[Rfam]
RNA sequence: UUCUUAUUAAGAGAGAAGGAGGGACUGGCCCGAUGAGAUCUCGGCAGCGGAACUUAGUGAUUAGGUUGCUGUGCCAAAUCCAGCAAGCAACAGCUUGAUAGAUAAGAA
Dot-bracket structure: ((((((((....((((....(((.[[[[))).......))))((((.((((.(..........).))..))))))...(]]]](((((....)))))..)))))))))
Numbered sequence: 001u002u003c004u005u006a007u008u009a010a011g012a013g014a015g016a017a018g019g020a021g022g023g024a025c026u027g028g029c030c031c032g033a034u035g036a037g038a039u040c041u042c043g044g045c046a047g048c049g050g051a052a053c054u055u056a057g058u059g060a061u062u063a064g065g066u067u068g069c070u071g072u073g074c075c076a077a078a079u080c081c082a083g084c085a086a087g088c089a090a091c092a093g094c095u096u097g098a099u100a101g102a103u104a105a106g107a108a
Stems, first nucleotide, its partner, number of pairs: 001108008013042004021031003025083004043075004048071002050067002053064001079100001084097005